tRNA: an 85-nucleotide sequence from Sulfolobales archaeon HS-7.
Pairs were carried over by alignment from the consensus structure, which is taken from published work.
Lineage of the source: Archaea > Thermoproteati > Thermoproteota > Thermoprotei > Sulfolobales.
It is annotated as a transfer RNA.
RNA sequence: GCGGGAGUGCCCGAGCUUGGUCAAAGGGGGCGGACUGAGGCUCCGCUGGUGUAGGCCUGCGUGGGUUCAAGUCCCACCUCCCGCA
Numbered sequence: 001g002c003g004g005g006a007g008u009g010c011c012c013g014a015g016c017u018u019g020g021u022c023a024a025a026g027g028g029g030g031c032g033g034a035c036u037g038a039g040g041c042u043c044c045g046c047u048g049g050u051g052u053a054g055g056c057c058u059g060c061g062u063g064g065g066u067u068c069a070a071g072u073c074c075c076a077c078c079u080c081c082c083g084c085a
Stems, first nucleotide, its partner, number of pairs: 001084007010028003030046005061077005